[Rfam]
RNA sequence: CGACAACCAUGCCACAUCCGCCGCGAGGCGGAGCCGGAAAGCCACGGGUCUUGGAAUAAGACAGCCGGGUUACCUUC
Numbered sequence: 001c002g003a004c005a006a007c008c009a010u011g012c013c014a015c016a017u018c019c020g021c022c023g024c025g026a027g028g029c030g031g032a033g034c035c036g037g038a039a040a041g042c043c044a045c046g047g048g049u050c051u052u053g054g055a056a057u058a059a060g061a062c063a064g065c066c067g068g069g070u071u072a073c074c075u076u077c
Stems, first nucleotide, its partner, number of pairs: 012037002017032006040071004045067003048062003
A member of the RNA family "c-di-GMP-I riboswitch aptamer" from Methylomonas sp. LL1, 77 nucleotides long.